[Rfam]
RNA sequence: UUGCACGUAGCCUCCCGGGCUCAUCUGAGUUUAUUAAAAUAGUGAAGUUAGAAGCCCCAAAGCUCGUGCUAAACUUACCCGCCGCUAAGUGUUGCAGUUUAGCUCCUUUGUACCUUUUUUAUCAUGGCUAAUCUGUGUCAAAUCAACGGCUACAUCC
Numbered sequence: 001u002u003g004c005a006c007g008u009a010g011c012c013u014c015c016c017g018g019g020c021u022c023a024u025c026u027g028a029g030u031u032u033a034u035u036a037a038a039a040u041a042g043u044g045a046a047g048u049u050a051g052a053a054g055c056c057c058c059a060a061a062g063c064u065c066g067u068g069c070u071a072a073a074c075u076u077a078c079c080c081g082c083c084g085c086u087a088a089g090u091g092u093u094g095c096a097g098u099u100u101a102g103c104u105c106c107u108u109u110g111u112a113c114c115u116u117u118u119u120u121a122u123c124a125u126g127g128c129u130a131a132u133c134u135g136u137g138u139c140a141a142a143u144c145a146a147c148g149g150c151u152a153c154a155u156c157c
Base pairs, nucleotide, nucleotide: 003069004068005067006066007065010063011062017057018056019055020054021053022051025047026046081150082149083148084147086145090140091139093137094136095135096134097133102128103127104126
small nucleolar RNA snoR134: a 157-nucleotide sequence from Nicotiana tabacum. Lineage of the source: Eukaryota > Viridiplantae > Euphyllophyta > Magnoliopsida > Nicotiana. By type it is an H/ACA-box small nucleolar RNA. The base pairs follow the family's consensus structure, which was predicted with RNAalifold. Its family is annotated with nucleolus and RNA processing in the Gene Ontology.